[Rfam]
RNA sequence: UGGAAGUGAUGAAACAGAGAUAAAUGGAUGUGUCUUUGAAUGGAGUGUGUGUGAUAAAUGGAGUUUAAACGAAGUCAGACUGGGGUUGGGGGAGUGUGUGUGCAUGUGCAUGUGUAGAGAAGGCUUGCAACGGGGGCGCUGAUAAUGCAGUGCUGAUUCCGGAGUGCAUCUGAGGCGUGUUGUUAAGUUCUGGGGUGCCAAUUCACAACGCUGCCGAUGAUUAAAGCCCAAAACAAGCCCACCGAGACAAGCCAAAGCAUCCUAAAUCUCUAACAGGUUCAUUAGUGGAAGUGAUCCUGUGAUCUGAUCCGA
Numbered sequence: 001u002g003g004a005a006g007u008g009a010u011g012a013a014a015c016a017g018a019g020a021u022a023a024a025u026g027g028a029u030g031u032g033u034c035u036u037u038g039a040a041u042g043g044a045g046u047g048u049g050u051g052u053g054a055u056a057a058a059u060g061g062a063g064u065u066u067a068a069a070c071g072a073a074g075u076c077a078g079a080c081u082g083g084g085g086u087u088g089g090g091g092g093a094g095u096g097u098g099u100g101u102g103c104a105u106g107u108g109c110a111u112g113u114g115u116a117g118a119g120a121a122g123g124c125u126u127g128c129a130a131c132g133g134g135g136g137c138g139c140u141g142a143u144a145a146u147g148c149a150g151u152g153c154u155g156a157u158u159c160c161g162g163a164g165u166g167c168a169u170c171u172g173a174g175g176c177g178u179g180u181u182g183u184u185a186a187g188u189u190c191u192g193g194g195g196u197g198c199c200a201a202u203u204c205a206c207a208a209c210g211c212u213g214c215c216g217a218u219g220a221u222u223a224a225a226g227c228c229c230a231a232a233a234c235a236a237g238c239c240c241a242c243c244g245a246g247a248c249a250a251g252c253c254a255a256a257g258c259a260u261c262c263u264a265a266a267u268c269u270c271u272a273a274c275a276g277g278u279u280c281a282u283u284a285g286u287g288g289a290a291g292u293g294a295u296c297c298u299g300u301g302a303u304c305u306g307a308u309c310c311g312a
Stems, first nucleotide, its partner, number of pairs: 001311004178210006185203001187198002190195001
The family of this 312-nucleotide RNA sequence from Rhynochetos jubatus is "Small Cajal body-specific RNA 7". Gene Ontology terms of the family: nucleolus and RNA processing. On this family, see Darzacq et al., EMBO J 2002: "Cajal body-specific small nuclear RNAs: a novel class of 2'-O-methylation and pseudouridylation guide RNAs". The match comes from Rfam's covariance-model search (169 bits). It is annotated as a small Cajal body RNA.